[Rfam]
RNA sequence: AAUUUUAUCAACUGAAAACACACACGUAUCGUCACAUACGUCCAGGGUGCCGUUAUGCGGUUGGGCGAUGGGAUAUGUGGAGGUUAUAAC
Numbered sequence: 001a002a003u004u005u006u007a008u009c010a011a012c013u014g015a016a017a018a019c020a021c022a023c024a025c026g027u028a029u030c031g032u033c034a035c036a037u038a039c040g041u042c043c044a045g046g047g048u049g050c051c052g053u054u055a056u057g058c059g060g061u062u063g064g065g066c067g068a069u070g071g072g073a074u075a076u077g078u079g080g081a082g083g084u085u086a087u088a089a090c
Stems, first nucleotide, its partner, number of pairs: 023079008035070003039067006049061005

Overview: A member of the RNA family "t44 RNA" from Marinobacterium marinum, 90 nucleotides long. It scores 67 bits against the family's covariance model. It is annotated as a small RNA. On this family, see Tjaden et al., Nucleic Acids Res 2002: "Transcriptome analysis of Escherichia coli using high-density oligonucleotide probe arrays". The source organism's lineage runs through Bacteria, Pseudomonadati, Pseudomonadota, Oceanospirillaceae and Marinobacterium. Rfam describes the family as follows. This family consists of a number of bacterial RNA genes of between 135 and 170 bases in length. The t44 gene has been identified in several species of enteric bacteria but homologs have also been identified in Pseudomonas and Coxiella species. The t44 gene is found between the map and rpsB genes in all species in the full alignment apart from Shigella flexneri. The function of this RNA is unknown.